[Rfam]
RNA sequence: AUUUUCUUUGCCGAGUGUAAAAAAAAACACUCGGCAAACAAGUUUGUUUGCCGAGUGUAAAAAAAAACACUCGGCAAACAAGCUUGUUUGCCGAGUGUAAAAAAAAACACUCG
Numbered sequence: 001a002u003u004u005u006c007u008u009u010g011c012c013g014a015g016u017g018u019a020a021a022a023a024a025a026a027a028c029a030c031u032c033g034g035c036a037a038a039c040a041a042g043u044u045u046g047u048u049u050g051c052c053g054a055g056u057g058u059a060a061a062a063a064a065a066a067a068c069a070c071u072c073g074g075c076a077a078a079c080a081a082g083c084u085u086g087u088u089u090g091c092c093g094a095g096u097g098u099a100a101a102a103a104a105a106a107a108c109a110c111u112c113g
Stems, first nucleotide, its partner, number of pairs: 007020002012033007045061001047059001052073007085101001087099001092113007
RNA: Fusobacteriales-1 RNA